[Rfam]
RNA sequence: AUUACCUUUUAUUAUUUUUUUCGUAUAACCUUAAUAAUUGGAUUAAGGGUCUCUACUAGAAACCGUAAAUUUCUAGCUACGAAAAAAUAUGCUUUCUUG
Numbered sequence: 001a002u003u004a005c006c007u008u009u010u011a012u013u014a015u016u017u018u019u020u021u022c023g024u025a026u027a028a029c030c031u032u033a034a035u036a037a038u039u040g041g042a043u044u045a046a047g048g049g050u051c052u053c054u055a056c057u058a059g060a061a062a063c064c065g066u067a068a069a070u071u072u073c074u075a076g077c078u079a080c081g082a083a084a085a086a087a088u089a090u091g092c093u094u095u096c097u098u099g
Stems, first nucleotide, its partner, number of pairs: 018085008029048007057075006